[Rfam]
RNA sequence: CUACCUCUCCCUUCGGGAGAGGUCAAAACCUGACCAGUCAGGUUUUGGGUGAGGGC
Numbered sequence: 001c002u003a004c005c006u007c008u009c010c011c012u013u014c015g016g017g018a019g020a021g022g023u024c025a026a027a028a029c030c031u032g033a034c035c036a037g038u039c040a041g042g043u044u045u046u047g048g049g050u051g052a053g054g055g056c
Stems, first nucleotide, its partner, number of pairs: 004022007025046009

A member of the RNA family "Whalefall-1 RNA" from Parvularcula maris, 56 nucleotides long. Rfam classes the family as a small RNA. A search with the family's covariance model found it, with a score of 42 bits.